[Rfam]
RNA: SAH (S-adenosyl-L-homocysteine) riboswitch aptamer
Organism: Rhizobacter sp. Root29
RNA sequence: CCCUCCAAGGAGCGUUGCGACGGGGGCCGAUCGGCCGCUGCCAGGCUUGGACGCUUGCAACCACGCUCACCCCCG
Dot-bracket structure: .(.(((((............(((.((........)).)))......))))).)......................